[Rfam]
RNA sequence: GUCGCUGGCAGUGGCGUACCAGAAGUGCUUUUACACGAGUGGUAUACGAUAUCUGUAAAUGCAUUAUCUGGUAUGAAAACUGCGCGCGA
Numbered sequence: 001g002u003c004g005c006u007g008g009c010a011g012u013g014g015c016g017u018a019c020c021a022g023a024a025g026u027g028c029u030u031u032u033a034c035a036c037g038a039g040u041g042g043u044a045u046a047c048g049a050u051a052u053c054u055g056u057a058a059a060u061g062c063a064u065u066a067u068c069u070g071g072u073a074u075g076a077a078a079a080c081u082g083c084g085c086g087c088g089a
Base pairs, nucleotide, nucleotide: 008083009082010081011080015075016074017073018072019071020070021069022068023067025064027062028061030059031058032057033056034055035054

The record is an 89-nucleotide sequence from Strigamia maritima, which matches "mir-277 microRNA precursor family" in Rfam. A reference for the family is Liu et al. (2010), "MicroRNAs of Bombyx mori identified by Solexa sequencing", BMC Genomics. Taxonomically the source falls in Strigamia (Eukaryota, Bilateria, Protostomia, Geophilomorpha). Pairs were carried over by alignment from the consensus structure, which was predicted with RNAalifold.